[Rfam]
RNA sequence: AUGGCCGGGGAUCGCCCCCCGUCAGCGCGGCUGCGCCCACGGGGGCGUCUGGU
Numbered sequence: 001a002u003g004g005c006c007g008g009g010g011a012u013c014g015c016c017c018c019c020c021g022u023c024a025g026c027g028c029g030g031c032u033g034c035g036c037c038c039a040c041g042g043g044g045g046c047g048u049c050u051g052g053u
Stems, first nucleotide, its partner, number of pairs: 016045007025036004
A member of the RNA family "ffh sRNA" from Paracoccus contaminans, 53 nucleotides long. For this family Rfam cites "Identification of candidate structured RNAs in the marine organism 'Candidatus Pelagibacter ubique'" (Meyer et al., BMC Genomics, 2009). Rfam classes the family as a small RNA.